[Rfam]
RNA sequence: GUAAGCUGAAGUGCAGUUAACGGUGAAUUUCACUGAGGAAACUCCAUCCACUAUAUAAAACCAUGAUGUUCUUAAUUGACAUACACUGAGAAGUGUGAUACUGAUAUAGAAACGAUACGAUAGAUCUUAAUCUGGUUUUGAAAGAUGAUACAAUUAGGUUGAUGAUGCCAAACAUAGAUAAUCGAUGAAACGAUCAAUCCAUGGAGUGCAAAAGUAAAUAUUGUCAUUUAUGGUGAUAGAGAAUAUUAUUCUCUUAGAGUUUAUGUUCUAUUGUUGUUAUAAUAUGACAAAAGGUAUCUUGCUAAGAUAAAUACUGCAAAAAACAUGAGGUGGGUUACUCUCAGCAUGC
Numbered sequence: 001g002u003a004a005g006c007u008g009a010a011g012u013g014c015a016g017u018u019a020a021c022g023g024u025g026a027a028u029u030u031c032a033c034u035g036a037g038g039a040a041a042c043u044c045c046a047u048c049c050a051c052u053a054u055a056u057a058a059a060a061c062c063a064u065g066a067u068g069u070u071c072u073u074a075a076u077u078g079a080c081a082u083a084c085a086c087u088g089a090g091a092a093g094u095g096u097g098a099u100a101c102u103g104a105u106a107u108a109g110a111a112a113c114g115a116u117a118c119g120a121u122a123g124a125u126c127u128u129a130a131u132c133u134g135g136u137u138u139u140g141a142a143a144g145a146u147g148a149u150a151c152a153a154u155u156a157g158g159u160u161g162a163u164g165a166u167g168c169c170a171a172a173c174a175u176a177g178a179u180a181a182u183c184g185a186u187g188a189a190a191c192g193a194u195c196a197a198u199c200c201a202u203g204g205a206g207u208g209c210a211a212a213a214g215u216a217a218a219u220a221u222u223g224u225c226a227u228u229u230a231u232g233g234u235g236a237u238a239g240a241g242a243a244u245a246u247u248a249u250u251c252u253c254u255u256a257g258a259g260u261u262u263a264u265g266u267u268c269u270a271u272u273g274u275u276g277u278u279a280u281a282a283u284a285u286g287a288c289a290a291a292a293g294g295u296a297u298c299u300u301g302c303u304a305a306g307a308u309a310a311a312u313a314c315u316g317c318a319a320a321a322a323a324c325a326u327g328a329g330g331u332g333g334g335u336u337a338c339u340c341u342c343a344g345c346a347u348g349c
Base pairs, nucleotide, nucleotide: 001349002348003347005345006344007343008342009341010339011338012318013317014316015315016314017313021035022034023033024032025031040336041335042334044333045332046331047330048329049208050207051206052205061204062203063202064201065200066082067081068080069079070078083096084095085094086093087092097199098198102196103195104194105193118184119183120182125178126177127176138158212300213299214298221290222289223288224287225286226285227284
The record is a 349-nucleotide sequence from Methanosphaera stadtmanae, which matches "Archaeal RNase P" in Rfam. Rfam describes the family as follows. Ribonuclease P (RNase P) is a ubiquitous endoribonuclease, found in archaea, bacteria and eukarya as well as chloroplasts and mitochondria. Its best characterised activity is the generation of mature 5'-ends of tRNAs by cleaving the 5'-leader elements of precursor-tRNAs. Cellular RNase Ps are ribonucleoproteins. Lineage of the source: Archaea > Methanobacteria > Methanobacteriales > Methanobacteriaceae > Methanosphaera stadtmanae.